[Rfam]
Annotation
A member of the RNA family "t44 RNA" from Photorhabdus laumondii, 106 nucleotides long.
RNA sequence: UACUCACUGUGUAAAUAACACACACGGGUCGGCACAUACACCGGGGUGCUCUCAUGCAGAACAUGCAGCUAAAGAGUCGGUGUUAUGGGGCUCGUGGAGGCAUAAC
Numbered sequence: 001u002a003c004u005c006a007c008u009g010u011g012u013a014a015a016u017a018a019c020a021c022a023c024a025c026g027g028g029u030c031g032g033c034a035c036a037u038a039c040a041c042c043g044g045g046g047u048g049c050u051c052u053c054a055u056g057c058a059g060a061a062c063a064u065g066c067a068g069c070u071a072a073a074g075a076g077u078c079g080g081u082g083u084u085a086u087g088g089g090g091c092u093c094g095u096g097g098a099g100g101c102a103u104a105a106c
Stems, first nucleotide, its partner, number of pairs: 023096008035087004040081004048077005
The organism belongs to Photorhabdus laumondii subsp. laumondii, within Bacteria.